Source information
Rfam assigns this 223-nucleotide RNA sequence from Cavenderia fasciculata to the family "U2 spliceosomal RNA". A search with the family's covariance model found it, with a score of 58 bits. Taxonomically the source falls in Cavenderia (Eukaryota, Evosea, Dictyostelia, Acytosteliales). About the family: U2 is a small nuclear RNA (snRNA) component of the spliceosome (involved in pre-mRNA splicing).
[Rfam]
RNA sequence: ACCUUCUCUCAGAGUUUAUGCUCUGAUUAUGUGUAGUAUCUGUUCUAGAAAGCUUAAUCUCUUUCUGCCUCCACACGUUGCGAUGGCUUUAAUGAUUAAUCUAAUUUAUUUACGGAGCAUUCAAGACUAUUCUAUCAAUGCCAACUAUGUUGUUCAAUUGUAAAUAGUCUUCUAUCGACCAUGAAUCGCACUAUUAUCAUGGUAAUACAAUGGUAGACUCCAC
Numbered sequence: 001a002c003c004u005u006c007u008c009u010c011a012g013a014g015u016u017u018a019u020g021c022u023c024u025g026a027u028u029a030u031g032u033g034u035a036g037u038a039u040c041u042g043u044u045c046u047a048g049a050a051a052g053c054u055u056a057a058u059c060u061c062u063u064u065c066u067g068c069c070u071c072c073a074c075a076c077g078u079u080g081c082g083a084u085g086g087c088u089u090u091a092a093u094g095a096u097u098a099a100u101c102u103a104a105u106u107u108a109u110u111u112a113c114g115g116a117g118c119a120u121u122c123a124a125g126a127c128u129a130u131u132c133u134a135u136c137a138a139u140g141c142c143a144a145c146u147a148u149g150u151u152g153u154u155c156a157a158u159u160g161u162a163a164a165u166a167g168u169c170u171u172c173u174a175u176c177g178a179c180c181a182u183g184a185a186u187c188g189c190a191c192u193a194u195u196a197u198c199a200u201g202g203u204a205a206u207a208c209a210a211u212g213g214u215a216g217a218c219u220c221c222a223c
Stems, first nucleotide, its partner, number of pairs: 007026002011022002014019001047066006067087003125169007172216006179202006